[Rfam]
RNA sequence: AAAGGUAAGUCGCCCCACCUGGAGCACGGCUCCGGGCGGGGCUAGGGGUGAAGCCGCGCUGUGCGCGGCCGGGCAACUCCAGCCCGAAUCCGACAGCUCACCUCGCAGGCGUGGGAGAGGAAGC
Numbered sequence: 001a002a003a004g005g006u007a008a009g010u011c012g013c014c015c016c017a018c019c020u021g022g023a024g025c026a027c028g029g030c031u032c033c034g035g036g037c038g039g040g041g042c043u044a045g046g047g048g049u050g051a052a053g054c055c056g057c058g059c060u061g062u063g064c065g066c067g068g069c070c071g072g073g074c075a076a077c078u079c080c081a082g083c084c085c086g087a088a089u090c091c092g093a094c095a096g097c098u099c100a101c102c103u104c105g106c107a108g109g110c111g112u113g114g115g116a117g118a119g120g121a122a123g124c
Base pairs, nucleotide, nucleotide: 011111012110013109014108018035019034036106037105038104039103040102041101046091047090048089054068055067056066057065071085072084073083074082

Shown here is a 124-nucleotide sequence from Kitasatospora kifunensis, a member of the family "c-di-AMP riboswitch aptamer (ydaO/yuaA leader)". From the family's description: This family represents a conserved RNA structure found upstream of the ydaO and yuaA genes in Bacillus subtilis and related genes in other bacteria.